[Rfam]
RNA: Small nucleolar RNA SNORD121A
RNA sequence: ACUCAGAGAGAAAACAGUGAUGUGAUAAUUUCCAAGCACAUAUCUGAUGAUUCCAUGUGGAAUUUAACUACUGAGUUACUGGGG
Numbered sequence: 001a002c003u004c005a006g007a008g009a010g011a012a013a014a015c016a017g018u019g020a021u022g023u024g025a026u027a028a029u030u031u032c033c034a035a036g037c038a039c040a041u042a043u044c045u046g047a048u049g050a051u052u053c054c055a056u057g058u059g060g061a062a063u064u065u066a067a068c069u070a071c072u073g074a075g076u077u078a079c080u081g082g083g084g
Stems, first nucleotide, its partner, number of pairs: 002083005013077003